Annotation:
This 48-nucleotide RNA sequence from Sulfitobacter marinus belongs to the Rfam family "SAM/SAH riboswitch aptamer". Gene Ontology terms of the family: S-adenosylmethionine metabolic process and regulation of gene expression. Pairs were carried over by alignment from the consensus structure, which is taken from published work. It scores 56 bits against the family's covariance model.
RNA sequence: CAUCGGCCACAACGGCUUCCUGACGUGGCUAUGAAAACUAUUGGAGCA
Numbered sequence: 001c002a003u004c005g006g007c008c009a010c011a012a013c014g015g016c017u018u019c020c021u022g023a024c025g026u027g028g029c030u031a032u033g034a035a036a037a038c039u040a041u042u043g044g045a046g047c048a
Stems, first nucleotide, its partner, number of pairs: 005030006013022002015047003019044002